This 200-nucleotide RNA from Nocardia sp. CS682 belongs to the Rfam family "Actinobacteria sRNA Ms_IGR-5". The family's RNA type in Rfam is small RNA.
[Rfam]
RNA sequence: ACACAGGAAGGAGGUGGUUCGAAGAAUGGUUAUUCAAAGGACGCGUGAGGUGGCUGCGCGCUAGCGCCACCGCUGCAGUGUUUUCGCCGCGCGAGCGCUAGCGAAUACCACGCAGUCACCCGGCCCCCGAGCCCCUGGUUGAGUCCGACCAGGACCUGAGCGACUAACCCCGCUUGGGUAGGGCUCGGGGGUCGUUCUGU
Number, nucleotide and partner (000 for none) at each position: 001a000002c000003a000004c000005a000006g000007g000008a000009a000010g000011g000012a000013g000014g057015u056016g055017g054018u053019u000020c000021g000022a000023a000024g000025a000026a000027u000028g000029g000030u000031u000032a000033u000034u000035c000036a000037a000038a000039g000040g000041a000042c000043g000044c000045g000046u000047g000048a000049g000050g000051u000052g000053g018054c017055u016056g015057c014058g000059c103060g102061c101062u100063a099064g098065c097066g096067c095068c000069a000070c000071c091072g090073c089074u000075g000076c000077a000078g000079u000080g000081u000082u000083u000084u000085c000086g000087c000088c000089g073090c072091g071092c000093g000094a000095g067096c066097g065098c064099u063100a062101g061102c060103g059104a000105a000106u000107a000108c000109c000110a000111c000112g000113c000114a000115g000116u000117c000118a000119c000120c000121c194122g193123g192124c191125c190126c189127c188128c187129g186130a185131g184132c183133c182134c153135c152136u151137g150138g149139u148140u000141g000142a000143g000144u000145c000146c000147g000148a139149c138150c137151a136152g135153g134154a000155c000156c000157u000158g000159a000160g000161c000162g000163a000164c000165u000166a000167a000168c000169c000170c000171c000172g000173c000174u000175u000176g000177g000178g000179u000180a000181g000182g133183g132184c131185u130186c129187g128188g127189g126190g125191g124192u123193c122194g121195u000196u000197c000198u000199g000200u000